[Rfam]
RNA sequence: GUCCAUGAUGAGUUAAUCUACAUAACUGAGAUGUGGCUGGCUUCAAGUUCCUGCUUUUCAGGGAGAACCUACUUGUGGCUGCUACAUCAUAGCAUGAAAUCACUGGAAAUCUCUGAGAC
Numbered sequence: 001g002u003c004c005a006u007g008a009u010g011a012g013u014u015a016a017u018c019u020a021c022a023u024a025a026c027u028g029a030g031a032u033g034u035g036g037c038u039g040g041c042u043u044c045a046a047g048u049u050c051c052u053g054c055u056u057u058u059c060a061g062g063g064a065g066a067a068c069c070u071a072c073u074u075g076u077g078g079c080u081g082c083u084a085c086a087u088c089a090u091a092g093c094a095u096g097a098a099a100u101c102a103c104u105g106g107a108a109a110u111c112u113c114u115g116a117g118a119c
Base pairs, nucleotide, nucleotide: 001119002118003117049063050062051061052060053059
Background:
The family of this 119-nucleotide RNA from Olea europaea is "Small nucleolar RNA Z278". Rfam 15.1 lists 1,130 matches to the family in 214 species. snoZ278 is a C/D box small nucleolar RNA. Its methylation guide targets have not been reported. By type it is a C/D-box small nucleolar RNA. The match comes from Rfam's covariance-model search (61 bits). The base pairs follow the family's consensus structure, which was predicted with PFOLD.